[Rfam]
RNA sequence: GGCUAGUCCUAAUGCAGUGGUGUUUACAACUAAUUGAUCACAACAAGCUACAGAAUUAUUUAUUCCUUCUCCACUUCCACUGCUUCACUUCACUAGCCUUUA
Numbered sequence: 001g002g003c004u005a006g007u008c009c010u011a012a013u014g015c016a017g018u019g020g021u022g023u024u025u026a027c028a029a030c031u032a033a034u035u036g037a038u039c040a041c042a043a044c045a046a047g048c049u050a051c052a053g054a055a056u057u058a059u060u061u062a063u064u065c066c067u068u069c070u071c072c073a074c075u076u077c078c079a080c081u082g083c084u085u086c087a088c089u090u091c092a093c094u095a096g097c098c099u100u101u102a
Stems, first nucleotide, its partner, number of pairs: 001098007011089001014086001016081005028064002032060002